[Rfam]
RNA sequence: CACGCUCCGUGUUCACUGUCUGUCUUGAUCUGCCUUCAGUAUUAAGGCACGCGGUGAAUGCCAAGCGUC
Numbered sequence: 001c002a003c004g005c006u007c008c009g010u011g012u013u014c015a016c017u018g019u020c021u022g023u024c025u026u027g028a029u030c031u032g033c034c035u036u037c038a039g040u041a042u043u044a045a046g047g048c049a050c051g052c053g054g055u056g057a058a059u060g061c062c063a064a065g066c067g068u069c
Stems, first nucleotide, its partner, number of pairs: 003067004009061008018052002023047007
mir-124 microRNA precursor family: a 69-nucleotide RNA sequence from Trichuris suis. The source organism's lineage runs through Eukaryota, Eumetazoa, Enoplea, Trichinellida and Trichuris. The family has 122 seed sequences and 2,215 matches in Rfam 15.1. Pairs were carried over by alignment from the consensus structure, which was predicted with PFOLD. The literature on the family includes a 2002 paper in Curr Biol by Lagos-Quintana et al., "Identification of tissue-specific microRNAs from mouse".